The record is a 71-nucleotide RNA sequence, which matches "Transposase-2 RNA" in Rfam.
Rfam classes the family as a small RNA.
The family has 151 seed sequences and 214 matches in Rfam 15.1.
Nucleotides: 071
Stems, first nucleotide, its partner, number of pairs: 011044005018033001020031003048067008
Number, partner (000 for none) and nucleotide at each position: 001000g002000a003000a004000a005000c006000g007000c008000g009000a010000a011044c012043c013042a014041a015040g016000c017000a018033g019000c020031c021030g022029c023000c024000a025000g026000a027000a028000g029022g030021u031020g032000a033018c034000g035000u036000a037000a038000g039000a040015c041014u042013u043012g044011g045000a046000g047000c048067u049066g050065g051064c052063c053062u054061u055060g056000g057000c058000a059000a060055c061054g062053a063052g064051g065050c066049c067048a068000u069000g070000c071000g